A member of the RNA family "SAM riboswitch aptamer (S box leader)" from Caproicibacterium amylolyticum, 96 nucleotides long. NCBI's taxonomy places the organism under Bacteria, Bacillota, Clostridia, Oscillospiraceae, Caproicibacterium.
[Rfam]
RNA sequence: CCCUUAUCAAGAGUGACGGAGGGAACAGGCCCUAUGAUGUCCGGCAACCUACGAAAGUAAGGUGCCAAAUCCUGCGGUGAAGCCGAUAGAUGAGGU
Numbered sequence: 001c002c003c004u005u006a007u008c009a010a011g012a013g014u015g016a017c018g019g020a021g022g023g024a025a026c027a028g029g030c031c032c033u034a035u036g037a038u039g040u041c042c043g044g045c046a047a048c049c050u051a052c053g054a055a056a057g058u059a060a061g062g063u064g065c066c067a068a069a070u071c072c073u074g075c076g077g078u079g080a081a082g083c084c085g086a087u088a089g090a091u092g093a094g095g096u
Base pairs, nucleotide, nucleotide: 002095003094004093005092006091007090008089013042015041016040017039021032022031023030026074027073028072029071043066044065045064046063048062049061050059051058052057070088075085076084077083078082